[Rfam]
RNA sequence: UCUAGAACUCGAGAUAUGGGCUGAACACUAAAUAGUGUCUAGGUUGCAGGACAGAUUUAGACUUCUCUAUUGUUGCUAUAAUUUGGACUUGAAAACAGCCUUUUUAAAUCUUGGACUCCACGUGAAAUUUUUAGGCAUAUGUCUUAUCUUUCCAUU
Numbered sequence: 001u002c003u004a005g006a007a008c009u010c011g012a013g014a015u016a017u018g019g020g021c022u023g024a025a026c027a028c029u030a031a032a033u034a035g036u037g038u039c040u041a042g043g044u045u046g047c048a049g050g051a052c053a054g055a056u057u058u059a060g061a062c063u064u065c066u067c068u069a070u071u072g073u074u075g076c077u078a079u080a081a082u083u084u085g086g087a088c089u090u091g092a093a094a095a096c097a098g099c100c101u102u103u104u105u106a107a108a109u110c111u112u113g114g115a116c117u118c119c120a121c122g123u124g125a126a127a128u129u130u131u132u133a134g135g136c137a138u139a140u141g142u143c144u145u146a147u148c149u150u151u152c153c154a155u156u
Base pairs, nucleotide, nucleotide: 003154005152006151007150009146011145012144013143014142015141016140017139018138020136021134022133023132024131025130027129029127035123036122037121042118043117045115048112049111050110051109054105055104060099062098063097068092072088073087074086
Shown here is a 156-nucleotide RNA sequence from Populus tomentosa, a member of the family "MIR2912 microRNA precursor family".
NCBI's taxonomy places the organism under Eukaryota, Magnoliopsida, eudicotyledons, Saliceae, Populus.
A search with the family's covariance model found it, with a score of 124 bits.